[Rfam]
RNA sequence: UCUUCAUUUCACGCCCACUCUCAUCGGUCAGAGAAGCGAGAAAGUGUGUGAAAUGAAGAGA
Numbered sequence: 001u002c003u004u005c006a007u008u009u010c011a012c013g014c015c016c017a018c019u020c021u022c023a024u025c026g027g028u029c030a031g032a033g034a035a036g037c038g039a040g041a042a043a044g045u046g047u048g049u050g051a052a053a054u055g056a057a058g059a060g061a
Stems, first nucleotide, its partner, number of pairs: 001059007010050001012048003016044001019041004
Background: Rfam assigns this 61-nucleotide sequence from Pristionchus pacificus to the family "mir-8364 microRNA precursor family". A search with the family's covariance model found it, with a score of 69 bits. The base pairs follow the family's consensus structure, which was predicted with RNAalifold.